[Rfam]
Shown here is an 86-nucleotide sequence from Solanum commersonii, a member of the family "MIR8024 microRNA precursor family". Pairs were carried over by alignment from the consensus structure, which was predicted with RNAalifold. The source organism's lineage runs through Eukaryota, Pentapetalae, asterids, Solaneae and Solanum.

RNA sequence: UUGAAGAAUUUGAAGACCUCAACUUGCAGACUUGAGGAAUUUGAAGACUUCGACCUGCAGAUUUGAAGAAUUUGAAUACUUCAACU
Numbered sequence: 001u002u003g004a005a006g007a008a009u010u011u012g013a014a015g016a017c018c019u020c021a022a023c024u025u026g027c028a029g030a031c032u033u034g035a036g037g038a039a040u041u042u043g044a045a046g047a048c049u050u051c052g053a054c055c056u057g058c059a060g061a062u063u064u065g066a067a068g069a070a071u072u073u074g075a076a077u078a079c080u081u082c083a084a085c086u
Stems, first nucleotide, its partner, number of pairs: 001084006009076006017068001019066003025059004032053006